Source information
The record is a 108-nucleotide RNA sequence from Serinibacter salmoneus, which matches "ZMP/ZTP riboswitch aptamer (pfl RNA motif)" in Rfam. The match comes from Rfam's covariance-model search (54 bits).

RNA sequence: GUCCCGGGCCGUGACUGGCGAGCCGUCACUGCGACAGGGUGGAGAACCACCGGGGAGCGGCCUGGUGCCUGACCGUCACCUCGUGCGCCGAUCGCCUGGGCGCGUGGG
Number, nucleotide and partner (000 for none) at each position: 001g000002u000003c000004c065005c064006g063007g062008g061009c060010c059011g058012u057013g000014a000015c054016u053017g096018g095019c094020g093021a092022g000023c000024c000025g000026u000027c000028a000029c000030u000031g000032c000033g000034a000035c000036a000037g000038g000039g050040u049041g048042g047043a000044g000045a000046a000047c042048c041049a040050c039051c000052g000053g016054g015055g000056a000057g012058c011059g010060g009061c008062c007063u006064g005065g004066u000067g000068c000069c000070u000071g000072a000073c000074c000075g000076u000077c000078a000079c000080c000081u000082c000083g000084u000085g103086c102087g101088c100089c099090g000091a000092u021093c020094g019095c018096c017097u000098g000099g089100g088101c087102g086103c085104g000105u000106g000107g000108g000